[Rfam]
RNA sequence: CACUUCCUUGUCUUGGGGAGCAGAAAUGUCCAAUGAACGUCUAGUGAGGGCAUUGCUGCUGACACCAAUUACAUUUAUUCCCGUCUGCCAGGCCACUCACUGUGGCUGGUGUUCGGAAUUUUUGGCCAA
Numbered sequence: 001c002a003c004u005u006c007c008u009u010g011u012c013u014u015g016g017g018g019a020g021c022a023g024a025a026a027u028g029u030c031c032a033a034u035g036a037a038c039g040u041c042u043a044g045u046g047a048g049g050g051c052a053u054u055g056c057u058g059c060u061g062a063c064a065c066c067a068a069u070u071a072c073a074u075u076u077a078u079u080c081c082c083g084u085c086u087g088c089c090a091g092g093c094c095a096c097u098c099a100c101u102g103u104g105g106c107u108g109g110u111g112u113u114c115g116g117a118a119u120u121u122u123u124g125g126c127c128a129a
Stems, first nucleotide, its partner, number of pairs: 005019005020059004025054007037045002081116003089109001091107006

U4atac minor spliceosomal RNA: a 129-nucleotide RNA sequence from Drosophila persimilis. Rfam's curators write: U4atac is an essential component of the minor U12-type spliceosome complex which is required for removal of the rarer class of eukaryotic introns (AT-AC, U12-type). Rfam links the family to the GO terms mRNA 5'-splice site recognition, spliceosomal tri-snRNP complex assembly and U4atac snRNP. By type it is a spliceosomal small nuclear RNA. NCBI's taxonomy places the organism under Eukaryota, Opisthokonta, Altocrustacea, Drosophila, Sophophora. The match comes from Rfam's covariance-model search (92 bits).